[Rfam]
RNA: SAM riboswitch aptamer (S box leader)
RNA sequence: UAACCAUCCCGAGCGGCUGAGAGAUCUGGCUCUGCGACGCCGCAGCAACCACCGAGAAGUCACCCCUUCUCGAAAGGUGCUACCGCCAGGAUCGAUGGGAG
Numbered sequence: 001u002a003a004c005c006a007u008c009c010c011g012a013g014c015g016g017c018u019g020a021g022a023g024a025u026c027u028g029g030c031u032c033u034g035c036g037a038c039g040c041c042g043c044a045g046c047a048a049c050c051a052c053c054g055a056g057a058a059g060u061c062a063c064c065c066c067u068u069c070u071c072g073a074a075a076g077g078u079g080c081u082a083c084c085g086c087c088a089g090g091a092u093c094g095a096u097g098g099g100a101g
Stems, first nucleotide, its partner, number of pairs: 001101001004098005013043005021032003026089004044081004049077002053072006085093001